[Rfam]
RNA sequence: AAAUGAAUCAAAGUGAUACCGCAGACAGCCGGGGCACCUGUCGGUGCUUAAAGCAUCCCAGCCGAGGUAUCGGAGAUCAUCCCCAUUUGUUGUUUGGAUGGGAGAUUGUUCCCGGCCUUCGUCUGUCUGCGAAGGCUUUUUCAUUUGCUCG
Dot-bracket structure: ...........................((.((((((((....))))).........))).))....................................................((((((((......))))))))...............
This 151-nucleotide sequence from Melghirimyces profundicolus belongs to the Rfam family "Ribosomal protein L10 leader".
Gene Ontology term of the family: regulation of gene expression.
Lineage of the source: Bacteria > Bacillati > Caryophanales > Thermoactinomycetaceae > Melghirimyces.